[Rfam]
Shown here is a 102-nucleotide sequence from Solimonas fluminis, a member of the family "Guanidine-I riboswitch aptamer".
RNA sequence: CAAUAAGGUGGCUAGGGUUCCGGCUCGCGAAUGCGGGCGCUGGUCCGAGAGCUGCCGACCUCCCUCAAGGGGGUUACACGGCGGGACAAAAGCCCGGGAGAC
Numbered sequence: 001c002a003a004u005a006a007g008g009u010g011g012c013u014a015g016g017g018u019u020c021c022g023g024c025u026c027g028c029g030a031a032u033g034c035g036g037g038c039g040c041u042g043g044u045c046c047g048a049g050a051g052c053u054g055c056c057g058a059c060c061u062c063c064c065u066c067a068a069g070g071g072g073g074u075u076a077c078a079c080g081g082c083g084g085g086a087c088a089a090a091a092g093c094c095c096g097g098g099a100g101a102c
Base pairs, nucleotide, nucleotide: 007056008055009054010053011052012051015046016045020043021042022040023038024037025036026035027034028033057075058074059073060072061071062070063069077097079100083095084094085093